[Rfam]
RNA sequence: GACGGCUCUCCGCGUGGCGGCAUCCAGGCCAAUUCCCCCAGGGCGGAAACGCAGCAAGGGUAACCGGGCUCUGCUGGGUGCGCGGAGAGUCAUUUUC
Numbered sequence: 001g002a003c004g005g006c007u008c009u010c011c012g013c014g015u016g017g018c019g020g021c022a023u024c025c026a027g028g029c030c031a032a033u034u035c036c037c038c039c040a041g042g043g044c045g046g047a048a049a050c051g052c053a054g055c056a057a058g059g060g061u062a063a064c065c066g067g068g069c070u071c072u073g074c075u076g077g078g079u080g081c082g083c084g085g086a087g088a089g090u091c092a093u094u095u096u097c
Stems, first nucleotide, its partner, number of pairs: 004091011015078001018076005024068002027065002035060003043052003
The record is a 97-nucleotide RNA from Microbacterium maritypicum, which matches "Bacterial small signal recognition particle RNA" in Rfam. The family is grouped with related families in Rfam's "SRP clan". It scores 60 bits against the family's covariance model. The source organism's lineage runs through Bacteria, Bacillati, Micrococcales, Microbacteriaceae and Microbacterium maritypicum. By type it is a non-coding RNA gene. On this family, see Rosenblad et al., Nucleic Acids Res 2003: "SRPDB: Signal Recognition Particle Database". The family's consensus secondary structure is taken from published work.